[Rfam]
This 68-nucleotide RNA from Callorhinchus milii belongs to the Rfam family "mir-33 microRNA precursor family". A reference for the family is Li et al. (2009), "Direct sequencing and expression analysis of a large number of miRNAs in Aedes aegypti and a multi-species survey of novel mosquito miRNAs", BMC Genomics.
RNA sequence: CUGUAGUGCAUUGUAGUUGCAUUGCAUGUGUCUUUGAUGUUGUGCAAUGUAUCUGGAAUGCAAUACAG
Numbered sequence: 001c002u003g004u005a006g007u008g009c010a011u012u013g014u015a016g017u018u019g020c021a022u023u024g025c026a027u028g029u030g031u032c033u034u035u036g037a038u039g040u041u042g043u044g045c046a047a048u049g050u051a052u053c054u055g056g057a058a059u060g061c062a063a064u065a066c067a068g
Base pairs, nucleotide, nucleotide: 001068002067003066004065006064007062008061009060010059011058012057014055015054016053019050021048022047023046024045025044026043027042